This 74-nucleotide RNA sequence from Parabacteroides johnsonii belongs to the Rfam family "tRNA". A reference for the family is Hou (1993), "The tertiary structure of tRNA and the development of the genetic code", Trends Biochem Sci. It is annotated as a transfer RNA.

[Rfam]
RNA sequence: GGUUCGGUAGUUCAGUUGGUUAGAAUACAUGCCUGUCACGCAUGGGGUCACGGGUUCGAGUCCCGUACGCACCG
Numbered sequence: 001g002g003u004u005c006g007g008u009a010g011u012u013c014a015g016u017u018g019g020u021u022a023g024a025a026u027a028c029a030u031g032c033c034u035g036u037c038a039c040g041c042a043u044g045g046g047g048u049c050a051c052g053g054g055u056u057c058g059a060g061u062c063c064c065g066u067a068c069g070c071a072c073c074g
Stems, first nucleotide, its partner, number of pairs: 001073003005069002010026004028044005050066005